[Rfam]
RNA sequence: AGAAGUUCAUCUGUGUGAACUUAUUCCAAACAGCUUUUGGAGUAGUGCGUGUGAACGUAAACACAGUUUGAACGUUUUUUGGAUAGAGACAACUAUGUCUAACAAAAAACCAGGAAGACCCGGCUCAGGCCGGGUUGUCAAUAUGCUAAAGC
Numbered sequence: 001a002g003a004a005g006u007u008c009a010u011c012u013g014u015g016u017g018a019a020c021u022u023a024u025u026c027c028a029a030a031c032a033g034c035u036u037u038u039g040g041a042g043u044a045g046u047g048c049g050u051g052u053g054a055a056c057g058u059a060a061a062c063a064c065a066g067u068u069u070g071a072a073c074g075u076u077u078u079u080u081g082g083a084u085a086g087a088g089a090c091a092a093c094u095a096u097g098u099c100u101a102a103c104a105a106a107a108a109a110c111c112a113g114g115a116a117g118a119c120c121c122g123g124c125u126c127a128g129g130c131c132g133g134g135u136u137g138u139c140a141a142u143a144u145g146c147u148a149a150a151g152c
Stems, first nucleotide, its partner, number of pairs: 005073005011066006020045002023043004029037002046059005074110008087100004114139002117136007
Dot-bracket structure: ....(((((.((((((...((.((((..((.....))..))))))(((((....))))).))))))..)))))((((((((.....((((......))))..))))))))...((.(((((((......))))))).)).............

Rfam assigns this 152-nucleotide RNA sequence from Orthoflavivirus tembusu to the family "Flavivirus 5' UTR". Its Rfam clan is "Flavivirus 5' UTR clan". Rfam classes the family as a cis-regulatory element. A reference for the family is Filomatori et al. (2006), "A 5' RNA element promotes dengue virus RNA synthesis on a circular genome", Genes Dev. Pairs were carried over by alignment from the consensus structure, which was predicted with LocARNA. Lineage of the source: Viruses > Orthornavirae > Flasuviricetes > Amarillovirales > Orthoflavivirus tembusu. From the family's description: The 5' UTR of flaviviruses are highly structured, has a length of approximately 100 nucleotides and harbors two conserved RNA secondary structures vital for the viral life cycle. During replication, a long-range RNA-RNA interaction between 5' UTR and 3' UTR of the genome is formed to initiate synthesis of new viral replicates and viral protein translation.